[Rfam]
RNA: RNase MRP
Organism: Armillaria ostoyae
RNA sequence: UUGCCGUCCGAAGAAUCGUCGUCGCAACUUCCGUACAGAGAGCCCUGGCUUUCAUACUUCGCUGUGGGGAAAGUCCCCGGAGAUGCAGAGUAUGUCCUCGUUCAACUAAUGGAAAGCGACCGUCUCCAAGCACGAUGGUACUGGACGAGGAUGGCGAGAAUGGCUUUGCUCGGCCCUUUGGCUUGUGGCUCCCUCUCGACCGCUCUGCUGUCUCGCUGACGGCAGGCUAUCCGGCCAAGGUGUUCAUGCGCGAAGAUACGAGCGUGUGUGUCGCUCGGUGGCCUGCUGAAGGUGCAGGCGCUUUGUUGCUCAUGGACACAGUUAUACGAUUGUAGCCCUUCUCGGGGUCUUCAACACAAUGGGGCUCACUCUCGUUCGGCA
Numbered sequence: 001u002u003g004c005c006g007u008c009c010g011a012a013g014a015a016u017c018g019u020c021g022u023c024g025c026a027a028c029u030u031c032c033g034u035a036c037a038g039a040g041a042g043c044c045c046u047g048g049c050u051u052u053c054a055u056a057c058u059u060c061g062c063u064g065u066g067g068g069g070a071a072a073g074u075c076c077c078c079g080g081a082g083a084u085g086c087a088g089a090g091u092a093u094g095u096c097c098u099c100g101u102u103c104a105a106c107u108a109a110u111g112g113a114a115a116g117c118g119a120c121c122g123u124c125u126c127c128a129a130g131c132a133c134g135a136u137g138g139u140a141c142u143g144g145a146c147g148a149g150g151a152u153g154g155c156g157a158g159a160a161u162g163g164c165u166u167u168g169c170u171c172g173g174c175c176c177u178u179u180g181g182c183u184u185g186u187g188g189c190u191c192c193c194u195c196u197c198g199a200c201c202g203c204u205c206u207g208c209u210g211u212c213u214c215g216c217u218g219a220c221g222g223c224a225g226g227c228u229a230u231c232c233g234g235c236c237a238a239g240g241u242g243u244u245c246a247u248g249c250g251c252g253a254a255g256a257u258a259c260g261a262g263c264g265u266g267u268g269u270g271u272c273g274c275u276c277g278g279u280g281g282c283c284u285g286c287u288g289a290a291g292g293u294g295c296a297g298g299c300g301c302u303u304u305g306u307u308g309c310u311c312a313u314g315g316a317c318a319c320a321g322u323u324a325u326a327c328g329a330u331u332g333u334a335g336c337c338c339u340u341c342u343c344g345g346g347g348u349c350u351u352c353a354a355c356a357c358a359a360u361g362g363g364g365c366u367c368a369c370u371c372u373c374g375u376u377c378g379g380c381a
Stems, first nucleotide, its partner, number of pairs: 002381005009374003014331006022067005028061001038053006072366002075364004085095003207223006225282001227280001231278004236273001240271004334350002337347002